[Rfam]
RNA sequence: AGGUGAUUAGUCUAAGUAAAAUACUUGAUUUCGGCUCAAGAGUCUGUGGUUAAAGUCCACAAUUGCCUA
Numbered sequence: 001a002g003g004u005g006a007u008u009a010g011u012c013u014a015a016g017u018a019a020a021a022u023a024c025u026u027g028a029u030u031u032c033g034g035c036u037c038a039a040g041a042g043u044c045u046g047u048g049g050u051u052a053a054a055g056u057c058c059a060c061a062a063u064u065g066c067c068u069a
Stems, first nucleotide, its partner, number of pairs: 001068007010022002013019001024040005045061005
Shown here is a 69-nucleotide RNA sequence, a member of the family "tRNA". Rfam classes the family as a transfer RNA. The base pairs follow the family's consensus structure, which is taken from published work. Its family is annotated with triplet codon-amino acid adaptor activity in the Gene Ontology. Rfam's curators put it in the seed alignment.